About this RNA:
The family of this 135-nucleotide RNA from Treponema pedis is "TD-1 RNA". The family's consensus secondary structure is taken from published work. Clan: TD (Treponema denticola) motifs. NCBI's taxonomy places the organism under Bacteria, Spirochaetota, Spirochaetia, Treponematales, Treponema pedis. Rfam 15.1 lists 147 matches to the family in 9 species.
[Rfam]
RNA sequence: AACACUCCUCGAGUUUGCUUGAAAAACUAUUUUGCAAACUUGCAUUAUUGUAUGCACUUUUUCACUUCGUUACAAAAGUGCGGAAAACAAGCAAUGCUCAAAAAUUGAUAUUUUUUCCGCUUGCUUAUUUUAUGA
Number, nucleotide and partner (000 for none) at each position: 001a000002a000003c000004a000005c000006u000007c000008c000009u000010c000011g041012a040013g039014u038015u037016u036017g035018c034019u000020u000021g000022a000023a000024a000025a000026a000027c000028u000029a000030u000031u000032u000033u000034g018035c017036a016037a015038a014039c013040u012041u011042g000043c000044a000045u000046u000047a000048u000049u000050g000051u000052a000053u000054g081055c080056a079057c078058u077059u076060u075061u074062u000063c000064a000065c000066u000067u000068c000069g000070u000071u000072a000073c000074a061075a060076a059077a058078g057079u056080g055081c054082g000083g000084a000085a000086a129087a128088c000089a126090a125091g124092c123093a122094a121095u000096g120097c119098u000099c000100a115101a114102a113103a112104a111105u110106u000107g000108a000109u000110a105111u104112u103113u102114u101115u100116u000117c000118c000119g097120c096121u094122u093123g092124c091125u090126u089127a000128u087129u086130u000131u000132a000133u000134g000135a000